The family of this 140-nucleotide sequence from Syntrophothermus lipocalidus is "c-di-AMP riboswitch aptamer (ydaO/yuaA leader)".
[Rfam]
RNA sequence: CCAUCUUGUAUGCUGAAUUCCGGGUCGCCAGGCCCGGAAGCGGGGGACCCAACGUUUUGGGGUGAAUCCGGCAGUUACUGCUGGUAGGGCGCCCUGGCCCGAAUCCGUCAGCUAACCUCGUAAGCGUAAAGGGAGAGGGU
Numbered sequence: 001c002c003a004u005c006u007u008g009u010a011u012g013c014u015g016a017a018u019u020c021c022g023g024g025u026c027g028c029c030a031g032g033c034c035c036g037g038a039a040g041c042g043g044g045g046g047a048c049c050c051a052a053c054g055u056u057u058u059g060g061g062g063u064g065a066a067u068c069c070g071g072c073a074g075u076u077a078c079u080g081c082u083g084g085u086a087g088g089g090c091g092c093c094c095u096g097g098c099c100c101g102a103a104u105c106c107g108u109c110a111g112c113u114a115a116c117c118u119c120g121u122a123a124g125c126g127u128a129a130a131g132g133g134a135g136a137g138g139g140u
Stems, first nucleotide, its partner, number of pairs: 011126004018039009040121006050059002060106003068084004087100004
Lineage of the source: Bacteria > Bacillati > Bacillota > Syntrophomonadaceae > Syntrophothermus lipocalidus.